[Rfam]
RNA sequence: UCGUUUCUAUCUUUGAGACCAUGUUUUCAAUGAAAUUAAAUAACUGGUGGUGGAAUAACUUACGUCGAAAUUCGUGAGCUAACCUGCCAUUCAAUUAUAUAAACUAUAAGGCUUGUC
Numbered sequence: 001u002c003g004u005u006u007c008u009a010u011c012u013u014u015g016a017g018a019c020c021a022u023g024u025u026u027u028c029a030a031u032g033a034a035a036u037u038a039a040a041u042a043a044c045u046g047g048u049g050g051u052g053g054a055a056u057a058a059c060u061u062a063c064g065u066c067g068a069a070a071u072u073c074g075u076g077a078g079c080u081a082a083c084c085u086g087c088c089a090u091u092c093a094a095u096u097a098u099a100u101a102a103a104c105u106a107u108a109a110g111g112c113u114u115g116u117c
Stems, first nucleotide, its partner, number of pairs: 036102003040098004045093001046091002049088004056081002059078003062072001
Rfam assigns this 117-nucleotide RNA from Christiangramia salexigens to the family "Bacteroidete tryptophan peptide leader RNA".
The base pairs follow the family's consensus structure, which is taken from published work.
It is annotated as a cis-regulatory leader.
Gene Ontology terms of the family: S-adenosylmethionine metabolic process and regulation of gene expression.
A search with the family's covariance model found it, with a score of 57 bits.